[Rfam]
RNA sequence: CGGUGAAUUACAGGGCGGUUUCUCCUUUGGCACGUACGGAGGCAAGGCAUGCUUUCGUCAUGCACCUGAAAAAUCUCUAGCUAGCCAUACGUGCCAAAGGAGAAUUGCCCUGCGAUUCACCA
Dot-bracket structure: ....(((((.(((((((((..((((..(((((((((...................................................)))))))))..)))).))))))))).)))))....
Rfam assigns this 122-nucleotide sequence from Oryza punctata to the family "mir-399 microRNA precursor family".
Rfam's curators write: mir-399 was identified in both Arabidopsis thaliana and Oryza sativa computationally and was later experimentally verified. mir-399 is thought to target mRNAs coding for a phosphatase transporter. The mature sequence is excised from the 3' arm of the hairpin.
For this family Rfam cites "Computational Identification of Plant MicroRNAs and Their Targets, Including a Stress-Induced miRNA" (Jones-Rhoades and Bartel, Mol Cell, 2004).
It scores 85 bits against the family's covariance model.
NCBI's taxonomy places the organism under Eukaryota, Embryophyta, Magnoliopsida, Poaceae, Oryza.